[Rfam]
RNA sequence: GAGCGGGACCGGGCCCCUCUGGCGGUUUUUUCAAACCGUGAUGUCGGACCGCAUCG
Numbered sequence: 001g002a003g004c005g006g007g008a009c010c011g012g013g014c015c016c017c018u019c020u021g022g023c024g025g026u027u028u029u030u031u032c033a034a035a036c037c038g039u040g041a042u043g044u045c046g047g048a049c050c051g052c053a054u055c056g
Base pairs, nucleotide, nucleotide: 006050007049009047010046011045012044022039023038024037025036026035027034028033